[Rfam]
MDR-NUDIX RNA: a 68-nucleotide RNA sequence.
RNA sequence: ACCAUAAACCAUCAACCAUCGUGGUUCUGGCUACUCGUGUACGUCUUGACGAGCAAGACCGCUAACGA
Numbered sequence: 001a002c003c004a005u006a007a008a009c010c011a012u013c014a015a016c017c018a019u020c021g022u023g024g025u026u027c028u029g030g031c032u033a034c035u036c037g038u039g040u041a042c043g044u045c046u047u048g049a050c051g052a053g054c055a056a057g058a059c060c061g062c063u064a065a066c067g068a
Base pairs, nucleotide, nucleotide: 007026008025009024010023011022012021035068036067037066038065043059044058045057046056047055048054
Rfam classes the family as a cis-regulatory element.